[Rfam]
RNA sequence: GAGAUACUCAAAAUGUGGGGGCACUUUUUAUUCCUUGAAGAAAAUUGCCUCUGGGUUUUGAGUGUUGC
Numbered sequence: 001g002a003g004a005u006a007c008u009c010a011a012a013a014u015g016u017g018g019g020g021g022c023a024c025u026u027u028u029u030a031u032u033c034c035u036u037g038a039a040g041a042a043a044a045u046u047g048c049c050u051c052u053g054g055g056u057u058u059u060g061a062g063u064g065u066u067g068c
Stems, first nucleotide, its partner, number of pairs: 004065009016053008025044004
Dot-bracket structure: ...(((((((((...((((((((.((((............)))).))))))))...)))))))))...
The family of this 68-nucleotide sequence from Nannospalax galili is "mir-290 microRNA precursor family". The literature on the family includes a 2003 paper in Dev Cell by Houbaviy et al., "Embryonic stem cell-specific MicroRNAs". The family's consensus secondary structure was predicted with RNAalifold. Its Rfam clan is "mir-290 clan". Its family is annotated with RISC complex and miRNA-mediated post-transcriptional gene silencing in the Gene Ontology.